[Rfam]
RNA sequence: UGCUCCCUGCUCUGUAUGGCUUUUUAUUCCUAUUUGACUGUUUGCUGAGGAUUCAUAUAGGGAUGGAAGCCAUGCAGGGCACAGAGCC
Numbered sequence: 001u002g003c004u005c006c007c008u009g010c011u012c013u014g015u016a017u018g019g020c021u022u023u024u025u026a027u028u029c030c031u032a033u034u035u036g037a038c039u040g041u042u043u044g045c046u047g048a049g050g051a052u053u054c055a056u057a058u059a060g061g062g063a064u065g066g067a068a069g070c071c072a073u074g075c076a077g078g079g080c081a082c083a084g085a086g087c088c
Base pairs, nucleotide, nucleotide: 002087003086004085005084008081009080010079011078012077013076014075015074016073017072018071019070020069021068022067023066026064027063028062029061030060031059032058033057035055036054037053

The record is an 88-nucleotide RNA sequence from Denticeps clupeoides, which matches "mir-135 microRNA precursor family" in Rfam. Rfam links the family to the GO terms RISC complex and gene silencing by miRNA. The match comes from Rfam's covariance-model search (74 bits). The source organism's lineage runs through Eukaryota, Bilateria, Neopterygii, Otomorpha and Denticeps. For this family Rfam cites "Identification of tissue-specific microRNAs from mouse" (Lagos-Quintana et al., Curr Biol, 2002).